[Rfam]
RNA sequence: UACCAAGGGCGCAUGGGGGAUGCCUUGGCAUUAAGAGAAAGGGCGUGGAAAUCUGCGAAAUGCUUGGGGGAAUUGAUAAACAAGUCGUGAUCCCAAGAUUCCCGGUAAAACCUGGUGAACUGAAACAUCUAAGUAACCAGUGGAAGAGAAAGAAAAAUCGAUUCCGUCAGUAGCGGCGAGCGAAAUCGGAAGAGCCCAAACCGAGAGGGUUUCCCUCUCGGGGUUGUAGGACUCCAAUAUCGGAUUGUGUGUUGUUAGUGGAACGACUUGGAACGGUCGGCCACAGAGGGUGACAGUCCCGUACACGAAAGCAUACACACACCGUAGGAGCACCUGAGUAGGUCCAGUCACGUGAAACCUGGAUUGAACCCGCGGGGACCAUCCCGCAAGGCUAAAUACUCCUUAAUGACCGAUAGCUAACCAGUAGCGUGAGUGAAUGGUGAGAAGAACCCCGUUUAGGGGAGGACAGUGAACCUGAAACCAUGCGCCUACAAG
Numbered sequence: 001u002a003c004c005a006a007g008g009g010c011g012c013a014u015g016g017g018g019g020a021u022g023c024c025u026u027g028g029c030a031u032u033a034a035g036a037g038a039a040a041g042g043g044c045g046u047g048g049a050a051a052u053c054u055g056c057g058a059a060a061u062g063c064u065u066g067g068g069g070g071a072a073u074u075g076a077u078a079a080a081c082a083a084g085u086c087g088u089g090a091u092c093c094c095a096a097g098a099u100u101c102c103c104g105g106u107a108a109a110a111c112c113u114g115g116u117g118a119a120c121u122g123a124a125a126c127a128u129c130u131a132a133g134u135a136a137c138c139a140g141u142g143g144a145a146g147a148g149a150a151a152g153a154a155a156a157a158u159c160g161a162u163u164c165c166g167u168c169a170g171u172a173g174c175g176g177c178g179a180g181c182g183a184a185a186u187c188g189g190a191a192g193a194g195c196c197c198a199a200a201c202c203g204a205g206a207g208g209g210u211u212u213c214c215c216u217c218u219c220g221g222g223g224u225u226g227u228a229g230g231a232c233u234c235c236a237a238u239a240u241c242g243g244a245u246u247g248u249g250u251g252u253u254g255u256u257a258g259u260g261g262a263a264c265g266a267c268u269u270g271g272a273a274c275g276g277u278c279g280g281c282c283a284c285a286g287a288g289g290g291u292g293a294c295a296g297u298c299c300c301g302u303a304c305a306c307g308a309a310a311g312c313a314u315a316c317a318c319a320c321a322c323c324g325u326a327g328g329a330g331c332a333c334c335u336g337a338g339u340a341g342g343u344c345c346a347g348u349c350a351c352g353u354g355a356a357a358c359c360u361g362g363a364u365u366g367a368a369c370c371c372g373c374g375g376g377g378a379c380c381a382u383c384c385c386g387c388a389a390g391g392c393u394a395a396a397u398a399c400u401c402c403u404u405a406a407u408g409a410c411c412g413a414u415a416g417c418u419a420a421c422c423a424g425u426a427g428c429g430u431g432a433g434u435g436a437a438u439g440g441u442g443a444g445a446a447g448a449a450c451c452c453c454g455u456u457u458a459g460g461g462g463a464g465g466a467c468a469g470u471g472a473a474c475c476u477g478a479a480a481c482c483a484u485g486c487g488c489c490u491a492c493a494a495g
Base pairs, nucleotide, nucleotide: 007490008489009488010487011486012485013484014483015482016481022475023440024439027411028410029408030407031406032405033404034403035402036400037399041103042102043101044057045056046055063097064096065095066094067093068092069091072085073084074083111142112140113139114138115137116136122129123128152159153158162396163190164189165188166187173181174180193393194392195391196390201221202220203219204218205217206216207215228335229334230333232330233329234328235327246321247320248319249318250317251316252315253313254312255311256310258306259305260304264279265278266277267276268275282286288300289299290298341365342364343363344362345361346360347359372387373386374385375384376383427434428433450462451461452460453459

Shown here is a 495-nucleotide part of an RNA from Stieleria bergensis, a member of the family "Bacterial large subunit ribosomal RNA". For this family Rfam cites "Crystal structure of the ribosome at 5.5 A resolution" (Yusupov et al., Science, 2001). Lineage of the source: Bacteria > Pseudomonadati > Planctomycetia > Pirellulaceae > Stieleria. A search with the family's covariance model found it, with a score of 2661 bits.